Overview: A member of the RNA family "terC RNA" from Phyllobacterium endophyticum, 56 nucleotides long.

RNA sequence: GCAUCAGGCCGGGCCCCUCUGGCAGUUCUUGCGAGCUGUGAUGUCGGACUGAGUGU
Number, nucleotide and partner (000 for none) at each position: 001g000002c000003a000004u000005c000006a050007g049008g000009c047010c046011g045012g044013g000014c000015c000016c000017c000018u000019c000020u000021g000022g039023c038024a037025g036026u035027u034028c033029u000030u000031g000032c000033g028034a027035g026036c025037u024038g023039u022040g000041a000042u000043g000044u012045c011046g010047g009048a000049c007050u006051g000052a000053g000054u000055g000056u000
Taxonomically the source falls in Phyllobacterium (Bacteria, Pseudomonadati, Pseudomonadota, Hyphomicrobiales). It scores 55 bits against the family's covariance model. By type it is a cis-regulatory element.